[Rfam]
Notes:
Rfam assigns this 114-nucleotide RNA from Pedobacter sp. MC2016-24 to the family "SAM riboswitch aptamer (S box leader)".

RNA sequence: GAUUUAUAAAGAAGUGGCGAGAGACAGGCUCAUUGACCCACUGGCAACCCUCCCAAAAUGGAGAAGGUGCCAAUUCCUGACCAGAUAACAUGGUGUUACCUGGAAAGAUAAAUU
Numbered sequence: 001g002a003u004u005u006a007u008a009a010a011g012a013a014g015u016g017g018c019g020a021g022a023g024a025c026a027g028g029c030u031c032a033u034u035g036a037c038c039c040a041c042u043g044g045c046a047a048c049c050c051u052c053c054c055a056a057a058a059u060g061g062a063g064a065a066g067g068u069g070c071c072a073a074u075u076c077c078u079g080a081c082c083a084g085a086u087a088a089c090a091u092g093g094u095g096u097u098a099c100c101u102g103g104a105a106a107g108a109u110a111a112a113u114u
Stems, first nucleotide, its partner, number of pairs: 001114007013042005021031003025079004043071004048067002050063004075106001081103004086098004
A search with the family's covariance model found it, with a score of 76 bits.